[Rfam]
RNA sequence: CGGAAGAAUUUAAAGACUUCAACUUGAAAACUUGAAGAUUAUGGAGACUUCAACUUGCAGACUUGAAGAAUAUGAAGACUUCAACU
Numbered sequence: 001c002g003g004a005a006g007a008a009u010u011u012a013a014a015g016a017c018u019u020c021a022a023c024u025u026g027a028a029a030a031c032u033u034g035a036a037g038a039u040u041a042u043g044g045a046g047a048c049u050u051c052a053a054c055u056u057g058c059a060g061a062c063u064u065g066a067a068g069a070a071u072a073u074g075a076a077g078a079c080u081u082c083a084a085c086u
Stems, first nucleotide, its partner, number of pairs: 003082004009076004014071001017068005025059002028056001032053006
RNA: MIR8024 microRNA precursor family
Organism: Solanum tuberosum